[Rfam]
RNA: Streptomyces-metH RNA
Organism: Streptomyces uncialis
RNA sequence: CCGGUCCGCCCCCUGGACGCUACGGGCGCACCGGGCGGCGGCCCCGCUACCCUGGGCGGGUGCGCCUUCCCGGAGGAGCCGCAAAGCCGACAGCCGUCGCAACCAGGGAGCCCUUACAUG
Numbered sequence: 001c002c003g004g005u006c007c008g009c010c011c012c013c014u015g016g017a018c019g020c021u022a023c024g025g026g027c028g029c030a031c032c033g034g035g036c037g038g039c040g041g042c043c044c045c046g047c048u049a050c051c052c053u054g055g056g057c058g059g060g061u062g063c064g065c066c067u068u069c070c071c072g073g074a075g076g077a078g079c080c081g082c083a084a085a086g087c088c089g090a091c092a093g094c095c096g097u098c099g100c101a102a103c104c105a106g107g108g109a110g111c112c113c114u115u116a117c118a119u120g
Base pairs, nucleotide, nucleotide: 061083062082063081064080066078067077068076069075086100087099089098090097091096